[Rfam]
RNA sequence: UCCCUGCGGUUUUCACUGUGUUUGCCUUGAUGUGCAAGUUCAGACGAUUAAGGCACGCGGUGAAAGCCACAGAGU
Numbered sequence: 001u002c003c004c005u006g007c008g009g010u011u012u013u014c015a016c017u018g019u020g021u022u023u024g025c026c027u028u029g030a031u032g033u034g035c036a037a038g039u040u041c042a043g044a045c046g047a048u049u050a051a052g053g054c055a056c057g058c059g060g061u062g063a064a065a066g067c068c069a070c071a072g073a074g075u
Base pairs, nucleotide, nucleotide: 004072005071006070009067010066011065012064013063014062015061016060018058019057020056025053026052027051028050029049030048031047
Dot-bracket structure: ...(((..((((((((.(((....(((((((...............)))))))..))).))))))))..)))...